RNA sequence: CGCGCCUGCCCUUCCUGGGCGUUUCCUCCCUAUGAACUGGCCGCGCUGCAAAGCGCGGCCUUUUUUGUUCGCGAG
Numbered sequence: 001c002g003c004g005c006c007u008g009c010c011c012u013u014c015c016u017g018g019g020c021g022u023u024u025c026c027u028c029c030c031u032a033u034g035a036a037c038u039g040g041c042c043g044c045g046c047u048g049c050a051a052a053g054c055g056c057g058g059c060c061u062u063u064u065u066u067g068u069u070c071g072c073g074a075g
Base pairs, nucleotide, nucleotide: 008020009019010018011017039060040059041058042057043056044055045054046053047052
A member of the RNA family "Makes More Granules Regulator RNA (mmgR)" from Poindextera montana, 75 nucleotides long. Pairs were carried over by alignment from the consensus structure.